[Rfam]
RNA sequence: CUUCAACGACCCCAGCCACAAAGGCCGCUCCGGAUCCCUGCCUUGCCCGUACGUCGCCAAGAGCGCCCGUGCCUC
Numbered sequence: 001c002u003u004c005a006a007c008g009a010c011c012c013c014a015g016c017c018a019c020a021a022a023g024g025c026c027g028c029u030c031c032g033g034a035u036c037c038c039u040g041c042c043u044u045g046c047c048c049g050u051a052c053g054u055c056g057c058c059a060a061g062a063g064c065g066c067c068c069g070u071g072c073c074u075c
Base pairs, nucleotide, nucleotide: 015025016024017023031071032070038065043060044059045058047056049054
Shown here is a 75-nucleotide RNA from Streptomyces monashensis, a member of the family "ASpks TB sRNA". Lineage of the source: Bacteria > Bacillati > Actinomycetota > Actinomycetes > Streptomyces. The literature on the family includes a 2009 paper in Mol Microbiol by Arnvig and Young, "Identification of small RNAs in Mycobacterium tuberculosis".